[Rfam]
RNA: Potassium channel RNA editing signal
Organism: Oncorhynchus tshawytscha
RNA sequence: AUAGUUACGGGGACAUGGUGCCCAAGACGAUCGCAGGGAAGAUCUUUGGUUCUAUCUGUUCUCUGAGCGGGGUGCUGGUAAUCGCCCUGCCCGUUCCCGUCAUCGUGUCGCAC
Numbered sequence: 001a002u003a004g005u006u007a008c009g010g011g012g013a014c015a016u017g018g019u020g021c022c023c024a025a026g027a028c029g030a031u032c033g034c035a036g037g038g039a040a041g042a043u044c045u046u047u048g049g050u051u052c053u054a055u056c057u058g059u060u061c062u063c064u065g066a067g068c069g070g071g072g073u074g075c076u077g078g079u080a081a082u083c084g085c086c087c088u089g090c091c092c093g094u095u096c097c098c099g100u101c102a103u104c105g106u107g108u109c110g111c112a113c
Base pairs, nucleotide, nucleotide: 002112004109006107007106008105009104010103012101013100014099017096018095020094021093036076037075039073048062049061